RNA sequence: UGAAAUCUUCGGGGCAAGGUGAAAUCCCUGACCGGCAGUGACAGCCUGCGAGCGGAAACGCUGAUGCGGUGAAAUCCCGCAGCCGACGGUAUAGUCCGGAUGAAAGAAGAUGUGA
Numbered sequence: 001u002g003a004a005a006u007c008u009u010c011g012g013g014g015c016a017a018g019g020u021g022a023a024a025u026c027c028c029u030g031a032c033c034g035g036c037a038g039u040g041a042c043a044g045c046c047u048g049c050g051a052g053c054g055g056a057a058a059c060g061c062u063g064a065u066g067c068g069g070u071g072a073a074a075u076c077c078c079g080c081a082g083c084c085g086a087c088g089g090u091a092u093a094g095u096c097c098g099g100a101u102g103a104a105a106g107a108a109g110a111u112g113u114g115a
Stems, first nucleotide, its partner, number of pairs: 003113001005111006017029003031095002033085002035049004044083002052061003065081005087098003